[Rfam]
RNA sequence: CUUCCAUUUAUUAAUGGAUAAGGCUUUGGUUUUAAUAUAUAUAUAAGUUCGUGAAAGUUUUGAAAGUAAAGGAGCAAUAUGAAAUUUCUUGUUAUAUCAAGAGAUUCGGUGUUGCUCCUUU
Numbered sequence: 001c002u003u004c005c006a007u008u009u010a011u012u013a014a015u016g017g018a019u020a021a022g023g024c025u026u027u028g029g030u031u032u033u034a035a036u037a038u039a040u041a042u043a044u045a046a047g048u049u050c051g052u053g054a055a056a057g058u059u060u061u062g063a064a065a066g067u068a069a070a071g072g073a074g075c076a077a078u079a080u081g082a083a084a085u086u087u088c089u090u091g092u093u094a095u096a097u098c099a100a101g102a103g104a105u106u107c108g109g110u111g112u113u114g115c116u117c118c119u120u121u
Stems, first nucleotide, its partner, number of pairs: 003018005068121013083106002086103005